[Rfam]
This 304-nucleotide RNA sequence from Senna tora belongs to the Rfam family "Plant signal recognition particle RNA". Pairs were carried over by alignment from the consensus structure, which is taken from published work.
RNA sequence: GCCGAGCUUGGUAACUCUAGCUUGUGACCUAAGUGGGGGCACUAAAGUGAUGGAAUGGGGCUUAGGCUUCACUUGGUUGGGCUGGGUACGGCAAUAAGCUGGCCUGCCCGCUCCAAGUUGUGAGCUGAGCCAUGUGUCUUGAGCGAAGGCUCUUGGCUCGUGGUUCCUAAACUGGAGGGCACCGCGUGAGGCUGGUUUCACAGAGCAGCGAAAACCUCCGGCUCACAACAGUGGAGGGAUAACAGGCUGCGGCACUCCUAGUCCACUAUGCCAUCUAAGCCUAGCUACUUAGACCAUCAUCUUU
Numbered sequence: 001g002c003c004g005a006g007c008u009u010g011g012u013a014a015c016u017c018u019a020g021c022u023u024g025u026g027a028c029c030u031a032a033g034u035g036g037g038g039g040c041a042c043u044a045a046a047g048u049g050a051u052g053g054a055a056u057g058g059g060g061c062u063u064a065g066g067c068u069u070c071a072c073u074u075g076g077u078u079g080g081g082c083u084g085g086g087u088a089c090g091g092c093a094a095u096a097a098g099c100u101g102g103c104c105u106g107c108c109c110g111c112u113c114c115a116a117g118u119u120g121u122g123a124g125c126u127g128a129g130c131c132a133u134g135u136g137u138c139u140u141g142a143g144c145g146a147a148g149g150c151u152c153u154u155g156g157c158u159c160g161u162g163g164u165u166c167c168u169a170a171a172c173u174g175g176a177g178g179g180c181a182c183c184g185c186g187u188g189a190g191g192c193u194g195g196u197u198u199c200a201c202a203g204a205g206c207a208g209c210g211a212a213a214a215c216c217u218c219c220g221g222c223u224c225a226c227a228a229c230a231g232u233g234g235a236g237g238g239a240u241a242a243c244a245g246g247c248u249g250c251g252g253c254a255c256u257c258c259u260a261g262u263c264c265a266c267u268a269u270g271c272c273a274u275c276u277a278a279g280c281c282u283a284g285c286u287a288c289u290u291a292g293a294c295c296a297u298c299a300u301c302u303u304u
Base pairs, nucleotide, nucleotide: 001040002039003038004023005022006021007020008019010017011016028037029036030035044303045302047300048299049298050297051296052295053294056291057290058288060286062284063283064282065281066280067279069278071276074273075272076271077270079264080263081262082261083260084259085258086257088256090255091253100249101248102247103246104245105244106243108238109237111236112235113234114233115232117229118228119227120226121225122224123223124222125221127166128165129164130163131162132161133160134159136157137156138155141152142151143150144149173220174219175218176217177216178215185210186209187208192203193202194201
Lineage of the source: Eukaryota > Streptophytina > Magnoliopsida > Cassieae > Senna.